Shown here is a 105-nucleotide RNA sequence from Nocardia bovistercoris, a member of the family "mraW RNA". The family has 45 seed sequences and 851 matches in Rfam 15.1. Lineage of the source: Bacteria > Bacillati > Mycobacteriales > Nocardiaceae > Nocardia. A search with the family's covariance model found it, with a score of 60 bits.
RNA sequence: CGGAACGAGUGCCACGCGGCCUCUGCCCGGAGGCGAACCCUGACGUACUUCCCCGACGCCAGGUGUCGAAUUCGGUCAGAGACCCCGCGGCAUUCGUCUUCUCGG
Numbered sequence: 001c002g003g004a005a006c007g008a009g010u011g012c013c014a015c016g017c018g019g020c021c022u023c024u025g026c027c028c029g030g031a032g033g034c035g036a037a038c039c040c041u042g043a044c045g046u047a048c049u050u051c052c053c054c055g056a057c058g059c060c061a062g063g064u065g066u067c068g069a070a071u072u073c074g075g076u077c078a079g080a081g082a083c084c085c086c087g088c089g090g091c092a093u094u095c096g097u098c099u100u101c102u103c104g105g
Stems, first nucleotide, its partner, number of pairs: 010092004015087002018084002021081005027075005034068003039063004044058003